[Rfam]
RNA sequence: UGAGGCAAGUAGAGGCACCCGCUUCUCACCUGAUUGACGUUCUAAUGUUAGAAUAGUUGACGGGUUUUCCAGUUAAUACGAACGGGAACGUGUGGGUGCAGUAUGUGUACCGACACUUUUUUAUGUUU
Numbered sequence: 001u002g003a004g005g006c007a008a009g010u011a012g013a014g015g016c017a018c019c020c021g022c023u024u025c026u027c028a029c030c031u032g033a034u035u036g037a038c039g040u041u042c043u044a045a046u047g048u049u050a051g052a053a054u055a056g057u058u059g060a061c062g063g064g065u066u067u068u069c070c071a072g073u074u075a076a077u078a079c080g081a082a083c084g085g086g087a088a089c090g091u092g093u094g095g096g097u098g099c100a101g102u103a104u105g106u107g108u109a110c111c112g113a114c115a116c117u118u119u120u121u122u123a124u125g126u127u128u
Stems, first nucleotide, its partner, number of pairs: 011026006028065003034060005091115003095111006
RNA: Ribosomal protein L20 leader